[Rfam]
RNA sequence: UCUAGAACCUUGGCGCUGACUCCCAGCCGAUCAAUCGCCCUGUCUCACCUUCCCCGGUGACAGGUCGGACCGGAUGGGGAUCAGCGCUAAGGAUCGAGAACCC
Numbered sequence: 001u002c003u004a005g006a007a008c009c010u011u012g013g014c015g016c017u018g019a020c021u022c023c024c025a026g027c028c029g030a031u032c033a034a035u036c037g038c039c040c041u042g043u044c045u046c047a048c049c050u051u052c053c054c055c056g057g058u059g060a061c062a063g064g065u066c067g068g069a070c071c072g073g074a075u076g077g078g079g080a081u082c083a084g085c086g087c088u089a090a091g092g093a094u095c096g097a098g099a100a101c102c103c
Stems, first nucleotide, its partner, number of pairs: 010090007018082002021079005027073003031069002036067002039064006046057001
Rfam assigns this 103-nucleotide RNA from Glaciihabitans arcticus to the family "mraW RNA". Taxonomically the source falls in Glaciihabitans (Bacteria, Bacillati, Actinomycetes, Microbacteriaceae).